[Rfam]
RNA sequence: CCCGCCACUGUGCCUGUCGUGUGACACGGGGACAGGUACAGUCCAGAGGUGAGCUGACAGAAAACGCCAGCUUAGGAAACAGGGUUAUUCUUUUGUGGGUAACUUUGUGCCGAAGGCUGGGGACAGGC
Numbered sequence: 001c002c003c004g005c006c007a008c009u010g011u012g013c014c015u016g017u018c019g020u021g022u023g024a025c026a027c028g029g030g031g032a033c034a035g036g037u038a039c040a041g042u043c044c045a046g047a048g049g050u051g052a053g054c055u056g057a058c059a060g061a062a063a064a065c066g067c068c069a070g071c072u073u074a075g076g077a078a079a080c081a082g083g084g085u086u087a088u089u090c091u092u093u094u095g096u097g098g099g100u101a102a103c104u105u106u107g108u109g110c111c112g113a114a115g116g117c118u119g120g121g122g123a124c125a126g127g128c
Base pairs, nucleotide, nucleotide: 005049006048008046009045010044018036020034021033022031065121067119069118070117071116072115073114075111076110080107081106082105083104084103085102088099089098090097
RNA: Small nucleolar RNA SNORA65
Organism: Apaloderma vittatum